[Rfam]
RNA sequence: GCCGAGCUUGAUAACUCUAGCUUGUAACCCGAGUGGGGGCACCAAGGUGAUGGAACAUGGCUCGUUCUACGCUCGGUUGGUCUGGAAGAUGCAUUAUGCAGGCCUGCCCGCUCCAAGUUAGGAGUUGAGCAAUGGGACUUGGGCGAAGGCUUGGGUUUCCUUGUUCCUAAAGCGGAGCUCACAGCGUGAGGCUGGCUUCACAGAGCAGCGACCACCUUCCUCUCCUCACAGUGGAAGGAUAACAGGCUGCUGCUCUUCUAGUCCACCAUAACCGGGUGUGCCAAGCUCAUGAACCAUCAUUUUU
Numbered sequence: 001g002c003c004g005a006g007c008u009u010g011a012u013a014a015c016u017c018u019a020g021c022u023u024g025u026a027a028c029c030c031g032a033g034u035g036g037g038g039g040c041a042c043c044a045a046g047g048u049g050a051u052g053g054a055a056c057a058u059g060g061c062u063c064g065u066u067c068u069a070c071g072c073u074c075g076g077u078u079g080g081u082c083u084g085g086a087a088g089a090u091g092c093a094u095u096a097u098g099c100a101g102g103c104c105u106g107c108c109c110g111c112u113c114c115a116a117g118u119u120a121g122g123a124g125u126u127g128a129g130c131a132a133u134g135g136g137a138c139u140u141g142g143g144c145g146a147a148g149g150c151u152u153g154g155g156u157u158u159c160c161u162u163g164u165u166c167c168u169a170a171a172g173c174g175g176a177g178c179u180c181a182c183a184g185c186g187u188g189a190g191g192c193u194g195g196c197u198u199c200a201c202a203g204a205g206c207a208g209c210g211a212c213c214a215c216c217u218u219c220c221u222c223u224c225c226u227c228a229c230a231g232u233g234g235a236a237g238g239a240u241a242a243c244a245g246g247c248u249g250c251u252g253c254u255c256u257u258c259u260a261g262u263c264c265a266c267c268a269u270a271a272c273c274g275g276g277u278g279u280g281c282c283a284a285g286c287u288c289a290u291g292a293a294c295c296a297u298c299a300u301u302u303u304u
Base pairs, nucleotide, nucleotide: 001040002039003038004023005022006021007020008019010017011016028037029036030035044303045302046301047300048299049298050297051296052295053294056291057290058289059288060287061285062284064282066280069279070278071277072276073275074274075273076272077271078270079264080263082261083260084259085258086257087256091253101248102247103246104245105244106243108238109237112235113234114233115232117229118228120226121225122224123223124222127166128165129164130163131162132161134159135158136157137156138155139154140153141152142151143150144149167172174219175218176217177216179214185210186209187208192203193202194201
RNA: Plant signal recognition particle RNA
Organism: Cajanus cajan